Description:
Rfam assigns this 134-nucleotide RNA sequence from Microcebus murinus to the family "Small nucleolar RNA SNORA64/SNORA10 family". Rfam's curators write: This family belongs to the H/ACA class of small nucleolar RNAs (snoRNAs) which act as guides in the the modification of uridines to pseudouridines. This family includes the human snoRNAs U64 and ACA10 and mouse MBI-29. It is annotated as an H/ACA-box small nucleolar RNA. NCBI's taxonomy places the organism under Eukaryota, Opisthokonta, Tetrapoda, Strepsirrhini, Microcebus. Its family is annotated with nucleolus and RNA processing in the Gene Ontology. The literature on the family includes a 1999 paper in EMBO J by Narayanan et al., "Nucleolar localization signals of box H/ACA small nucleolar RNAs". Clan: SNORA64 clan.
[Rfam]
RNA sequence: ACUCUCCCAGCUCUGCAUGGUUACACUAGGCCUCACUUGUGUAACUUUCGUAAUGUGGAGAGAAAGAAAAGAUCUCCUUGGGACCUCAGAUUAGCCUCACCGUGGCUUCUCUUUCCUUGAGGGGCGCAACAGAU
Numbered sequence: 001a002c003u004c005u006c007c008c009a010g011c012u013c014u015g016c017a018u019g020g021u022u023a024c025a026c027u028a029g030g031c032c033u034c035a036c037u038u039g040u041g042u043a044a045c046u047u048u049c050g051u052a053a054u055g056u057g058g059a060g061a062g063a064a065a066g067a068a069a070a071g072a073u074c075u076c077c078u079u080g081g082g083a084c085c086u087c088a089g090a091u092u093a094g095c096c097u098c099a100c101c102g103u104g105g106c107u108u109c110u111c112u113u114u115c116c117u118u119g120a121g122g123g124g125c126g127c128a129a130c131a132g133a134u
Base pairs, nucleotide, nucleotide: 002066003065005063006062008060011058012057014055015054019046020045021044022043023042024041025040026039074124075123076122077121078120080118081117082116088112089111090110093107094106095105096104